[Rfam]
RNA sequence: AGAAGUAGAAAAGGUUUGAAAGAUCUAAUUCAACUUUUAAAGCAAACGGUGGGCAUGGUAUGCUAAAAAGGCUCGAGGAACAAGCUACUAUCUUUUUCGUGAGUUCCUCGGGCAAUGACAAAAGCACAUGCACAAUAAAUAAAGUCAAUAGCGACGCUAGGUUACCCUAGCGGUCUAUUGACUUUUUUAUGGAUUAGAAGAGUCAUUUUUCUCGUUUUCUUCUGUUUUUUUAGAAAUUGUUUUAUGAC
Numbered sequence: 001a002g003a004a005g006u007a008g009a010a011a012a013g014g015u016u017u018g019a020a021a022g023a024u025c026u027a028a029u030u031c032a033a034c035u036u037u038u039a040a041a042g043c044a045a046a047c048g049g050u051g052g053g054c055a056u057g058g059u060a061u062g063c064u065a066a067a068a069a070g071g072c073u074c075g076a077g078g079a080a081c082a083a084g085c086u087a088c089u090a091u092c093u094u095u096u097u098c099g100u101g102a103g104u105u106c107c108u109c110g111g112g113c114a115a116u117g118a119c120a121a122a123a124g125c126a127c128a129u130g131c132a133c134a135a136u137a138a139a140u141a142a143a144g145u146c147a148a149u150a151g152c153g154a155c156g157c158u159a160g161g162u163u164a165c166c167c168u169a170g171c172g173g174u175c176u177a178u179u180g181a182c183u184u185u186u187u188u189a190u191g192g193a194u195u196a197g198a199a200g201a202g203u204c205a206u207u208u209u210u211c212u213c214g215u216u217u218u219c220u221u222c223u224g225u226u227u228u229u230u231u232a233g234a235a236a237u238u239g240u241u242u243u244a245u246g247a248c
Base pairs, nucleotide, nucleotide: 002038003037005035008031009030010029014025016023017022043246044245050066052064053063054062055061056060071113072112073111074110075109076108077107078106079105080104081103082100084098117241118240119239120238126231144182145181146180147179148178149177156171157170158169159168160167161166191229192228193227195224196223197222198221199220200219202218205215206214